[Rfam]
RNA sequence: GCGAGGUGAUGAUUCAUGUAUGAAAGUCUGUCAAUCCCCUGAUGUCACAAAGUGAUGAUACAUCCCGACAGGCUCUGAUCGC
Number, nucleotide and partner (000 for none) at each position: 001g082002c081003g080004a079005g000006g000007u000008g000009a000010u000011g000012a000013u000014u000015c000016a000017u000018g000019u000020a000021u000022g000023a000024a000025a000026g000027u000028c000029u000030g000031u000032c000033a000034a000035u000036c000037c000038c000039c000040u000041g000042a000043u000044g000045u000046c000047a000048c000049a000050a000051a000052g000053u000054g000055a000056u000057g000058a000059u000060a000061c000062a000063u000064c000065c000066c000067g000068a000069c000070a000071g000072g000073c000074u000075c000076u000077g000078a000079u004080c003081g002082c001
About this RNA
A member of the RNA family "Small nucleolar RNA snoR14" from Oryza meyeriana, 82 nucleotides long. The source organism's lineage runs through Eukaryota, Euphyllophyta, Oryzinae, Oryza and Oryza meyeriana. Rfam 15.1 lists 668 matches to the family in 221 species. The base pairs follow the family's consensus structure. Rfam classes the family as a C/D-box small nucleolar RNA. On this family, see Brown et al., RNA 2001: "Multiple snoRNA gene clusters from Arabidopsis".